This 116-nucleotide RNA sequence from Serratia odorifera belongs to the Rfam family "Group II catalytic intron D1-D4-2". The organism belongs to Serratia odorifera, within Bacteria. The literature on the family includes a 2001 paper in Trends Genet by Bonen and Vogel, "The ins and outs of group II introns". It scores 99 bits against the family's covariance model.
RNA sequence: GGAAGAUGGCCUUCCGUAUUCGCCUUACAGGAGGAGGAUACAAACCACCUCAGACUGUUGUGGUAAAGAGCCACAGCAGGAAGCGCUGAGGAAAAGGCGACAAGAAGUCGUCAGGU
Numbered sequence: 001g002g003a004a005g006a007u008g009g010c011c012u013u014c015c016g017u018a019u020u021c022g023c024c025u026u027a028c029a030g031g032a033g034g035a036g037g038a039u040a041c042a043a044a045c046c047a048c049c050u051c052a053g054a055c056u057g058u059u060g061u062g063g064u065a066a067a068g069a070g071c072c073a074c075a076g077c078a079g080g081a082a083g084c085g086c087u088g089a090g091g092a093a094a095a096g097g098c099g100a101c102a103a104g105a106a107g108u109c110g111u112c113a114g115g116u
Stems, first nucleotide, its partner, number of pairs: 001015005016041006023034004046115001048091006055079001057077003061073004096112006
Group II introns are found in rRNA, tRNA and mRNA of organelles in fungi, plants and protists, and also in mRNA in bacteria.